[Rfam]
Nucleotides: 397
Stems, first nucleotide, its partner, number of pairs: 002392009011381001012350007020071002023068006076379003080376005085254004092287004097250005102116005117131001118129004132245002137243002139239002154184002156180003161177002163174004192210006211234001213231004217226003258307004268298006278292005314333008
Number, partner (000 for none) and nucleotide at each position: 001000c002392g003391a004390g005389u006388u007387a008386g009385c010384c011381a012350g013349a014348c015347a016346a017345u018344c019000g020071c021070u022000g023068c024067u025066u026065a027064a028063u029000c030000g031000u032000u033000g034000u035000a036000u037000c038000a039000a040000u041000u042000g043000c044000g045000u046000a047000a048000g049000c050000u051000u052000u053000u054000g055000g056000u057000a058000g059000a060000c061000a062000g063028a064027u065026u066025a067024a068023g069000g070021g071020g072000a073000g074000g075000a076379a077378a078377g079000u080376c081375c082374g083373g084372g085254c086253u087252c088251c089000a090000u091000u092287g093286a094285g095284c096000a097250g098249g099248g100247u101246g102116c103115c104114a105113g106112g107000u108000a109000a110000c111000a112106c113105c114104u115103g116102g117131g118129c119128g120127g121126c122000g123000u124000g125000a126121g127120c128119c129118g130000a131117c132245g133244a134000c135000a136000a137243g138242u139239g140238c141000a142000g143000c144000a145000g146000a147000g148000a149000g150000a151000a152000g153000a154184c155183c156180g157179c158178c159000g160000a161177u162176g163174g164173c165172u166171a167000g168000c169000a170000a171166u172165a173164g174163c175000a176162c177161a178158g179157g180156u181000a182000a183155g184154g185000c186000u187000g188000a189000a190000a191000g192210g193209g194208u195207g196206c197205g198000g199000u200000a201000a202000g203000a204000g205197c206196g207195c208194a209193c210192c211234g212000g213231g214230c215229g216228g217226c218225u219224g220000g221000u222000a223000a224219c225218a226217g227000u228216c229215c230214g231213c232000a233000g234211c235000a236000g237000g238140g239139u240000a241000a242138a243137c244133u245132c246101c247100a248099c249098c250097c251088g252087g253086a254085g255000c256000a257000a258307g259306a260305c261304c262000a263000a264000a265000u266000a267000g268298g269297g270296u271295u272294c273293c274000u275000u276000a277000c278292g279291g280290c281289g282288u283000g284095g285094c286093u287092c288282g289281c290280g291279u292278u293273g294272g295271a296270a297269c298268c299000g300000g301000g302000u303000a304261g305260g306259u307258u308000g309000c310000u311000u312000g313000a314333g315332c316331c317330u318329a319328g320327a321326a322000g323000c324000g325000a326321u327320u328319c329318u330317a331316g332315g333314c334000c335000u336000a337000g338000a339000c340000g341000a342000a343000u344018g345017a346016u347015u348014g349013u350012c351000g352000c353000a354000u355000c356000g357000a358000a359000a360000g361000a362000u363000g364000u365000a366000a367000c368000a369000g370000a371000a372084c373083c374082c375081g376080g377078c378077u379076u380000a381011u382000a383000c384010g385009g386008c387007u388006a389005a390004c391003u392002c393000a394000c395000u396000a397000a
Background
The record is a 397-nucleotide sequence from Thalassomonas sp. M1454, which matches "Bacterial RNase P class A" in Rfam. It is annotated as a ribozyme. Ribonuclease P (RNase P) is a ubiquitous endoribonuclease, found in archaea, bacteria and eukarya as well as chloroplasts and mitochondria. The organism belongs to Thalassomonas, within Bacteria.